[Rfam]
RNA sequence: AUCGUUCAACCCUUUUGGGUCGGAAGUAGGCAAAGCUGAAGGAACGCGCA
Numbered sequence: 001a002u003c004g005u006u007c008a009a010c011c012c013u014u015u016u017g018g019g020u021c022g023g024a025a026g027u028a029g030g031c032a033a034a035g036c037u038g039a040a041g042g043a044a045c046g047c048g049c050a
Base pairs, nucleotide, nucleotide: 003046004045005044006043007042009020010019011018012017023047029037030036031035
Source information
The family of this 50-nucleotide RNA sequence is "Glutamine riboswitch aptamer (glnA leader)". It is one of the family's seed sequences. A reference for the family is Ren et al. (2015), "Structural and Dynamic Basis for Low-Affinity, High-Selectivity Binding of L-Glutamine by the Glutamine Riboswitch", Cell Rep.